This 74-nucleotide sequence from Polaribacter gangjinensis belongs to the Rfam family "tRNA". Pairs were carried over by alignment from the consensus structure, which is taken from published work. The source organism's lineage runs through Bacteria, Pseudomonadati, Bacteroidota, Flavobacteriia and Polaribacter. It is annotated as a transfer RNA.

RNA sequence: GGGGAUGUAGCUCAGUUGGCUAGAGCGCUACGCUGGCAGCGUAGAGGUCGUCGGUUCGAGCCCGAUCUUCUCCA
Number, nucleotide and partner (000 for none) at each position: 001g073002g072003g071004g070005a069006u000007g067008u000009a000010g026011c025012u024013c023014a000015g000016u000017u000018g000019g000020c000021u000022a000023g013024a012025g011026c010027g000028c044029u043030a042031c041032g040033c000034u000035g000036g000037c000038a000039g000040c032041g031042u030043a029044g028045a000046g000047g000048u000049c000050g066051u065052c064053g063054g062055u000056u000057c000058g000059a000060g000061c000062c054063c053064g052065a051066u050067c007068u000069u005070c004071u003072c002073c001074a000